[Rfam]
Rfam assigns this 128-nucleotide sequence from Callithrix jacchus to the family "Small nucleolar RNA SNORA25". It scores 122 bits against the family's covariance model. The organism belongs to Callithrix, within Eukaryota. ACA25 is a member of the H/ACA class of snoRNA that guide the sites of modification of uridines to pseudouridines. Rfam links the family to the GO terms nucleolus and RNA processing.

RNA sequence: AGGCCAUUUUAAAGAGGGCUCAUGGGACUGUGAAAACAAGAGCUCUUACUACUGUGACCAAAAAUUGAAAUUCUCUAUAGGUUGCCAAAGCAUUCAAUGGUGCUAUGUUUUCCUGAGGAGGUAAAAGA
Numbered sequence: 001a002g003g004c005c006a007u008u009u010u011a012a013a014g015a016g017g018g019c020u021c022a023u024g025g026g027a028c029u030g031u032g033a034a035a036a037c038a039a040g041a042g043c044u045c046u047u048a049c050u051a052c053u054g055u056g057a058c059c060a061a062a063a064a065u066u067g068a069a070a071u072u073c074u075c076u077a078u079a080g081g082u083u084g085c086c087a088a089a090g091c092a093u094u095c096a097a098u099g100g101u102g103c104u105a106u107g108u109u110u111u112c113c114u115g116a117g118g119a120g121g122u123a124a125a126a127g128a
Stems, first nucleotide, its partner, number of pairs: 002059002005056003014047008023039001026037001072121005079114003087106001089104006